[Rfam]
RNA sequence: AGCUGCCUGGUGAGCACAAAGCGAACUAUUCUUUCGCCUUUUACUAAAGAAUACCAUGUGCACGCCACAUCAAGCAGCAGACACCUAUUUUUGAAGGGAUCUCUCCUCUUAUGAGAAGG
Numbered sequence: 001a002g003c004u005g006c007c008u009g010g011u012g013a014g015c016a017c018a019a020a021g022c023g024a025a026c027u028a029u030u031c032u033u034u035c036g037c038c039u040u041u042u043a044c045u046a047a048a049g050a051a052u053a054c055c056a057u058g059u060g061c062a063c064g065c066c067a068c069a070u071c072a073a074g075c076a077g078c079a080g081a082c083a084c085c086u087a088u089u090u091u092u093g094a095a096g097g098g099a100u101c102u103c104u105c106c107u108c109u110u111a112u113g114a115g116a117a118g119g
Stems, first nucleotide, its partner, number of pairs: 003077004008067005014061005027053008100118001102116004
The record is a 119-nucleotide RNA from Triticum turgidum, which matches "U5 spliceosomal RNA" in Rfam. Lineage of the source: Eukaryota > Spermatophyta > Magnoliopsida > Pooideae > Triticum turgidum. Rfam classes the family as a spliceosomal small nuclear RNA. A reference for the family is Zwieb (1997), "The uRNA database", Nucleic Acids Res. Rfam describes the family as follows. U5 RNA is a component of both types of known spliceosome. The precise function of this molecule is unknown, though it is known that the 5' loop is required for splice site selection and p220 binding, and that both the 3' stem-loop and the Sm site are important for Sm protein binding and cap methylation.